[Rfam]
The family of this 93-nucleotide RNA from Melghirimyces thermohalophilus is "Glycine riboswitch aptamer".
RNA sequence: UUGAUGACGGGAGGAGAGACCACAGUUGGUGGCGCCGAAGGAGCAAGCCGGUUGCCCGGCGAAUCUCUCAGGCAAAAGGAGGCCCGUCGGACG
Numbered sequence: 001u002u003g004a005u006g007a008c009g010g011g012a013g014g015a016g017a018g019a020c021c022a023c024a025g026u027u028g029g030u031g032g033c034g035c036c037g038a039a040g041g042a043g044c045a046a047g048c049c050g051g052u053u054g055c056c057c058g059g060c061g062a063a064u065c066u067c068u069c070a071g072g073c074a075a076a077a078g079g080a081g082g083c084c085c086g087u088c089g090g091a092c093g
Base pairs, nucleotide, nucleotide: 006088007087008086009085010084011083020032021031022030023029034073035072036071037069038068041067042066043065047060048059

The organism belongs to Melghirimyces, within Bacteria. This family represents the bacterial glycine riboswitch.